[Rfam]
RNA sequence: GACGCAGGCCGUGACUGGCGCUGCAGAGGUGGACCACCACCGGGGAGCGGCCCGCACCACCCCGCCGGGCGCCUGGGCACCUGUC
Numbered sequence: 001g002a003c004g005c006a007g008g009c010c011g012u013g014a015c016u017g018g019c020g021c022u023g024c025a026g027a028g029g030u031g032g033a034c035c036a037c038c039a040c041c042g043g044g045g046a047g048c049g050g051c052c053c054g055c056a057c058c059a060c061c062c063c064g065c066c067g068g069g070c071g072c073c074u075g076g077g078c079a080c081c082u083g084u085c
Base pairs, nucleotide, nucleotide: 004055005054007052008051009050010049011048012047015044016043017073018072019071020070021069029040030039031038032037064078065077066076
RNA: ZMP/ZTP riboswitch aptamer (pfl RNA motif)